This 429-nucleotide sequence from Xenorhabdus innexi belongs to the Rfam family "cspA thermoregulator". The family has 15 seed sequences and 2,094 matches in Rfam 15.1. The base pairs follow the family's consensus structure, which is taken from published work. Rfam links the family to the GO terms response to temperature stimulus and regulation of translation. Rfam classes the family as an RNA thermoregulator. NCBI's taxonomy places the organism under Bacteria, Pseudomonadati, Pseudomonadota, Enterobacterales, Xenorhabdus.
RNA sequence: AUCGGUUUGAAAAACAGACCUCAUACAAAGCAGUUUAUUAAAGCAGUUCUCAUACUCAGGCGUUAUCAUAAUAUCCCCUUUUUUUGAGUACCUCCAUUAAGCGCUAAGUAGUUUCUGUAAAACAGGCCAUGUUCGCCUAAAAAGGCUCAAUCAAAGGAAAUAUAAUAUGUCUAAUAAAAUGACUGGUUUAGUAAAAUGGUUUAAUGCAGAUAAAGGUUUUGGCUUUAUCUCCCCUACCGAUGGAAGCAAAGAUGUGUUCGUACACUUCUCUGCAAUUCAGAGUAAUAACUACCGCACUCUGGAAGAAGGCCAAAAAGUCGAAUUCACCAUCGAACAAGGUGCCAAAGGCCCAGCAGCAGCAAACGUUGUUCCUACAGCGUAAAAUAAAUCUUCUUUGAAUCCUUUUUUCUGCAAUAGCGAAGACGGCUU
Numbered sequence: 001a002u003c004g005g006u007u008u009g010a011a012a013a014a015c016a017g018a019c020c021u022c023a024u025a026c027a028a029a030g031c032a033g034u035u036u037a038u039u040a041a042a043g044c045a046g047u048u049c050u051c052a053u054a055c056u057c058a059g060g061c062g063u064u065a066u067c068a069u070a071a072u073a074u075c076c077c078c079u080u081u082u083u084u085u086g087a088g089u090a091c092c093u094c095c096a097u098u099a100a101g102c103g104c105u106a107a108g109u110a111g112u113u114u115c116u117g118u119a120a121a122a123c124a125g126g127c128c129a130u131g132u133u134c135g136c137c138u139a140a141a142a143a144g145g146c147u148c149a150a151u152c153a154a155a156g157g158a159a160a161u162a163u164a165a166u167a168u169g170u171c172u173a174a175u176a177a178a179a180u181g182a183c184u185g186g187u188u189u190a191g192u193a194a195a196a197u198g199g200u201u202u203a204a205u206g207c208a209g210a211u212a213a214a215g216g217u218u219u220u221g222g223c224u225u226u227a228u229c230u231c232c233c234c235u236a237c238c239g240a241u242g243g244a245a246g247c248a249a250a251g252a253u254g255u256g257u258u259c260g261u262a263c264a265c266u267u268c269u270c271u272g273c274a275a276u277u278c279a280g281a282g283u284a285a286u287a288a289c290u291a292c293c294g295c296a297c298u299c300u301g302g303a304a305g306a307a308g309g310c311c312a313a314a315a316a317g318u319c320g321a322a323u324u325c326a327c328c329a330u331c332g333a334a335c336a337a338g339g340u341g342c343c344a345a346a347g348g349c350c351c352a353g354c355a356g357c358a359g360c361a362a363a364c365g366u367u368g369u370u371c372c373u374a375c376a377g378c379g380u381a382a383a384a385u386a387a388a389u390c391u392u393c394u395u396u397g398a399a400u401c402c403u404u405u406u407u408u409c410u411g412c413a414a415u416a417g418c419g420a421a422g423a424c425g426g427c428u429u
Stems, first nucleotide, its partner, number of pairs: 004020006029235002033231001042226002046224001048222002050216002053213001062211003067206003070202002073200001075199002080169001082167001084165003094157002097154002100151001103123001105121001135146003171186003175182001238332006251259002264318004269314001271312002273309001276303006338351002341349003353375001355373002358370004377412003381408004